[Rfam]
RNA sequence: UACAAUAGGUUUCGCACUCAGGGGCGGUAGCUGCAUCUCCAUUGAGGUCGUAAGACGGGGGAGGUGUUAUCAUGGAAGUGAAGGAUGCUUUAACGCUGAUGCUCUCAUUCGGCUUAUUUCUCAUCACUUUACUUUCCUACUUGAAAAAGAAGUAGACCUCCCUUGAGUCUUAGCGGAUGAAGGAGGUCUAUCACGUAAUUUAUGCAGCCGACCGCGCCUUGAGGGGCGAUCUAUUGUCAGGACCGCUGGUGCUACCCACACUCGCG
Numbered sequence: 001u002a003c004a005a006u007a008g009g010u011u012u013c014g015c016a017c018u019c020a021g022g023g024g025c026g027g028u029a030g031c032u033g034c035a036u037c038u039c040c041a042u043u044g045a046g047g048u049c050g051u052a053a054g055a056c057g058g059g060g061g062a063g064g065u066g067u068u069a070u071c072a073u074g075g076a077a078g079u080g081a082a083g084g085a086u087g088c089u090u091u092a093a094c095g096c097u098g099a100u101g102c103u104c105u106c107a108u109u110c111g112g113c114u115u116a117u118u119u120c121u122c123a124u125c126a127c128u129u130u131a132c133u134u135u136c137c138u139a140c141u142u143g144a145a146a147a148a149g150a151a152g153u154a155g156a157c158c159u160c161c162c163u164u165g166a167g168u169c170u171u172a173g174c175g176g177a178u179g180a181a182g183g184a185g186g187u188c189u190a191u192c193a194c195g196u197a198a199u200u201u202a203u204g205c206a207g208c209c210g211a212c213c214g215c216g217c218c219u220u221g222a223g224g225g226g227c228g229a230u231c232u233a234u235u236g237u238c239a240g241g242a243c244c245g246c247u248g249g250u251g252c253u254a255c256c257c258a259c260a261c262u263c264g265c266g
Stems, first nucleotide, its partner, number of pairs: 002237004007232003011228001012211003017167008026157001028155001033067003037063004074136007087102002111128002177196003214227002217224001244266003248262004
Rfam assigns this 266-nucleotide RNA sequence from Paenibacillus selenitireducens to the family "BsrG". Pairs were carried over by alignment from the consensus structure, which was predicted with WAR. Its family is annotated with toxin activity and autolysis in the Gene Ontology. For this family Rfam cites "Identification of regulatory RNAs in Bacillus subtilis" (Irnov et al., Nucleic Acids Res, 2010).